[Rfam]
RNA sequence: GAAGGAUCAAUACCAAACUUCUUGUUCUAUUAAGAAGUUUGGUAUUGAUCUAUUUGGU
Numbered sequence: 001g002a003a004g005g006a007u008c009a010a011u012a013c014c015a016a017a018c019u020u021c022u023u024g025u026u027c028u029a030u031u032a033a034g035a036a037g038u039u040u041g042g043u044a045u046u047g048a049u050c051u052a053u054u055u056g057g058u
Base pairs, nucleotide, nucleotide: 001054002053004051005050006049007048008047009046010045011044012043013042014041019036020035021034022033023032024031